[Rfam]
Nucleotides: 157
Base pairs, nucleotide, nucleotide: 016023017022031129032128033127034126035125036124037123044063047060050057051056064070065069071108073106074103077102078101083097084096085095086094109119110118111117112116132157133156134155135154136153137152138151139150140149141148
Number, partner (000 for none) and nucleotide at each position: 001000g002000c003000g004000u005000a006000u007000c008000u009000g010000a011000a012000a013000g014000g015000a016023g017022g018000u019000g020000a021000u022017c023016c024000a025000g026000u027000g028000u029000c030000u031129c032128a033127u034126u035125g036124u037123c038000a039000u040000c041000a042000a043000u044063c045000g046000c047060g048000a049000g050057c051056g052000g053000c054000c055000g056051c057050g058000a059000c060047c061000u062000g063044g064070a065069c066000c067000u068000c069065g070064u071108u072000g073106g074103a075000g076000g077102c078101c079000c080000g081000g082000g083097c084096c085095u086094g087000a088000u089000c090000c091000u092000u093000u094086c095085a096084g097083g098000c099000a100000a101078g102077g103074u104000u105000u106073c107000g108071a109119u110118c111117g112116c113000a114000g115000c116112g117111c118110g119109a120000u121000c122000a123037g124036a125035c126034a127033a128032u129031g130000a131000a132157g133156g134155g135154c136153c137152g138151u139150c140149g141148c142000a143000g144000c145000g146000a147000c148141g149140c150139g151138g152137c153136g154135g155134c156133c157132c
This 157-nucleotide RNA sequence from Brevundimonas sp. Leaf363 belongs to the Rfam family "caulobacter sRNA CC2171". A reference for the family is Landt et al. (2008), "Small non-coding RNAs in Caulobacter crescentus", Mol Microbiol. The match comes from Rfam's covariance-model search (87 bits). By type it is a small RNA.